[Rfam]
RNA sequence: GGGGGCGUUACGGAUUCGACAGGCAUAGUUGAGCUUGAAUGGCACUUCGUAGGUUACGUCUACGUAAAAACGUUACAGUUAAAUAUAACUGCUAAAAACGAAAACAAUACUUUUGCUUUAGCUGCCUAAAAACAGCGAGCAAAGAUCCUCUCGGCAUCGCCCAUGUGCUCGAGUAAGGGUCUCAAACUAAGUGGGAUACAUUAAACUUUUCCGUCUGUAAAGUUUAAAAGAGAUUAUCAGACUAGCGAUGUUUAGGGCCUGUUAUGCGGCAUGAAACAAAGCGAAUCUCUAAAUAGUAUGACUAUGAGUGUAGAAAUUUAAGUGACAAUAUGUUUGGACGCGGGUUCGACUCCCGCCGCUUCCAUUU
Numbered sequence: 001g002g003g004g005g006c007g008u009u010a011c012g013g014a015u016u017c018g019a020c021a022g023g024c025a026u027a028g029u030u031g032a033g034c035u036u037g038a039a040u041g042g043c044a045c046u047u048c049g050u051a052g053g054u055u056a057c058g059u060c061u062a063c064g065u066a067a068a069a070a071c072g073u074u075a076c077a078g079u080u081a082a083a084u085a086u087a088a089c090u091g092c093u094a095a096a097a098a099c100g101a102a103a104a105c106a107a108u109a110c111u112u113u114u115g116c117u118u119u120a121g122c123u124g125c126c127u128a129a130a131a132a133c134a135g136c137g138a139g140c141a142a143a144g145a146u147c148c149u150c151u152c153g154g155c156a157u158c159g160c161c162c163a164u165g166u167g168c169u170c171g172a173g174u175a176a177g178g179g180u181c182u183c184a185a186a187c188u189a190a191g192u193g194g195g196a197u198a199c200a201u202u203a204a205a206c207u208u209u210u211c212c213g214u215c216u217g218u219a220a221a222g223u224u225u226a227a228a229a230g231a232g233a234u235u236a237u238c239a240g241a242c243u244a245g246c247g248a249u250g251u252u253u254a255g256g257g258c259c260u261g262u263u264a265u266g267c268g269g270c271a272u273g274a275a276a277c278a279a280a281g282c283g284a285a286u287c288u289c290u291a292a293a294u295a296g297u298a299u300g301a302c303u304a305u306g307a308g309u310g311u312a313g314a315a316a317u318u319u320a321a322g323u324g325a326c327a328a329u330a331u332g333u334u335u336g337g338a339c340g341c342g343g344g345u346u347c348g349a350c351u352c353c354c355g356c357c358g359c360u361u362c363c364a365u366u367u
Stems, first nucleotide, its partner, number of pairs: 001363007020336008029327001033323008043310005048064005053076002056073004118139002121136004144181006150173004154168004160195005201227009213243001216240001245282002249278005257270003261302004265296001340356005
RNA: transfer-messenger RNA
Organism: Vagococcus carniphilus